[Rfam]
Annotation:
The family of this 81-nucleotide sequence from Albula goreensis is "mir-194 microRNA precursor family". The match comes from Rfam's covariance-model search (81 bits). Rfam links the family to the GO terms miRNA-mediated post-transcriptional gene silencing and RISC complex.
RNA sequence: UGGUGCUUGCUGGCUGUAACAGCAACUCCAUGUGGAAGUGUUCUGUAUUCCAGUGGAGCUGCUGUUAUCUGCAGAGAGACA
Numbered sequence: 001u002g003g004u005g006c007u008u009g010c011u012g013g014c015u016g017u018a019a020c021a022g023c024a025a026c027u028c029c030a031u032g033u034g035g036a037a038g039u040g041u042u043c044u045g046u047a048u049u050c051c052a053g054u055g056g057a058g059c060u061g062c063u064g065u066u067a068u069c070u071g072c073a074g075a076g077a078g079a080c081a
Base pairs, nucleotide, nucleotide: 010074011073012072016068017067018066019065020064021063022062023061026058027057028056029055030054031053033052034051035050